[Rfam]
RNA sequence: GUAAAUUCUUGGUGUGAUGUGGUUUUGUUUGAGCUUUUAAAGUGAGAAAUUGCAACCUAAAGAGAAUUUCUGACUGCAAGAUUGGCUUUAUAGGGCCAUUUUUAAUGCGUAUCGGUUACUUGGGU
Number, nucleotide and partner (000 for none) at each position: 001g000002u000003a069004a068005a067006u066007u065008c064009u063010u000011g000012g000013u000014g000015u000016g000017a000018u054019g053020u052021g051022g000023u049024u048025u047026u046027g000028u000029u000030u000031g000032a000033g043034c042035u041036u040037u000038u000039a000040a036041a035042g034043u033044g000045a000046g026047a025048a024049a023050u000051u021052g020053c019054a018055a000056c000057c000058u000059a000060a000061a000062g000063a009064g008065a007066a006067u005068u004069u003070c000071u000072g000073a000074c000075u000076g000077c000078a000079a000080g000081a000082u000083u098084g097085g096086c095087u094088u093089u000090a000091u000092a000093g088094g087095g086096c085097c084098a083099u000100u000101u000102u000103u000104a000105a000106u000107g000108c000109g000110u000111a000112u000113c000114g000115g000116u000117u000118a000119c000120u000121u000122g000123g000124g000125u000

Shown here is a 125-nucleotide RNA from Campylobacter portucalensis, a member of the family "purD RNA motif". NCBI's taxonomy places the organism under Bacteria, Pseudomonadati, Epsilonproteobacteria, Campylobacterales, Campylobacter. It is annotated as a cis-regulatory element. The base pairs follow the family's consensus structure, which is taken from published work. A reference for the family is Weinberg et al. (2007), "Identification of 22 candidate structured RNAs in bacteria using the CMfinder comparative genomics pipeline", Nucleic Acids Res.